[Rfam]
RNA sequence: UAGUGUUAUAGCUCUCUUAGAACUUGUCUAGCAGACUUUCCAAUUUUUGCUAGAAAGCCCCU
Numbered sequence: 001u002a003g004u005g006u007u008a009u010a011g012c013u014c015u016c017u018u019a020g021a022a023c024u025u026g027u028c029u030a031g032c033a034g035a036c037u038u039u040c041c042a043a044u045u046u047u048u049g050c051u052a053g054a055a056a057g058c059c060c061c062u
Base pairs, nucleotide, nucleotide: 034059036057037056038055039054040053042051044049
RNA: U7 small nuclear RNA